Bacterial RNase P class A: a 412-nucleotide RNA sequence from Dyadobacter fermentans. The source organism's lineage runs through Bacteria, Pseudomonadati, Bacteroidota, Spirosomataceae and Dyadobacter fermentans.
[Rfam]
RNA sequence: GGUCUAAGCUGUCCUGCCGCUGCGGUUUUUUAACCGGGGAGGAAAGUCCGGGCAGCACAGAGCGCCGUACUUCCUAACGGGAAGGCAACGGAUUGGCGACGGUUCGUUGACAGCAAGUGCAACAGAAAAAAUACCGCCCUGGCAUAUUUUUUGUACGCCACGGUAAGGGUGAAAAGGUGGAGUAAGAGCCCACCGGUUUCCUGGCGACAGGGAAUGCAUGGUAAACCUUACGGGCUGAAAGAUCAAAUAGGUGCCGGUUUAUGGGGCUGCUCGUCCCUGCUCUUCGGGGCGCUGGCACGGGUAGAUCGUUAGAGGUUCCGGGCGACCGGAAUCCUGGAUAAAUGGCAGGAGCGGAGAUCGGGGAUUUCCCUGGUUUACGUGACAGAACCCGGCUUACAGGCUUGGCUUUUUU
Numbered sequence: 001g002g003u004c005u006a007a008g009c010u011g012u013c014c015u016g017c018c019g020c021u022g023c024g025g026u027u028u029u030u031u032a033a034c035c036g037g038g039g040a041g042g043a044a045a046g047u048c049c050g051g052g053c054a055g056c057a058c059a060g061a062g063c064g065c066c067g068u069a070c071u072u073c074c075u076a077a078c079g080g081g082a083a084g085g086c087a088a089c090g091g092a093u094u095g096g097c098g099a100c101g102g103u104u105c106g107u108u109g110a111c112a113g114c115a116a117g118u119g120c121a122a123c124a125g126a127a128a129a130a131a132u133a134c135c136g137c138c139c140u141g142g143c144a145u146a147u148u149u150u151u152u153g154u155a156c157g158c159c160a161c162g163g164u165a166a167g168g169g170u171g172a173a174a175a176g177g178u179g180g181a182g183u184a185a186g187a188g189c190c191c192a193c194c195g196g197u198u199u200c201c202u203g204g205c206g207a208c209a210g211g212g213a214a215u216g217c218a219u220g221g222u223a224a225a226c227c228u229u230a231c232g233g234g235c236u237g238a239a240a241g242a243u244c245a246a247a248u249a250g251g252u253g254c255c256g257g258u259u260u261a262u263g264g265g266g267c268u269g270c271u272c273g274u275c276c277c278u279g280c281u282c283u284u285c286g287g288g289g290c291g292c293u294g295g296c297a298c299g300g301g302u303a304g305a306u307c308g309u310u311a312g313a314g315g316u317u318c319c320g321g322g323c324g325a326c327c328g329g330a331a332u333c334c335u336g337g338a339u340a341a342a343u344g345g346c347a348g349g350a351g352c353g354g355a356g357a358u359c360g361g362g363g364a365u366u367u368c369c370c371u372g373g374u375u376u377a378c379g380u381g382a383c384a385g386a387a388c389c390c391g392g393c394u395u396a397c398a399g400g401c402u403u404g405g406c407u408u409u410u411u412u
Stems, first nucleotide, its partner, number of pairs: 001408002004405007011397001012350007020039002023036005044395003048392005053237004060284003065233005070084005085111001086109010112228002117226002119222002134168002136164003140160004176194005195217001196215008241307004251298006275289005314333008
Notes: Its family is annotated with dimeric ribonuclease P complex, ribonuclease P activity and tRNA processing in the Gene Ontology.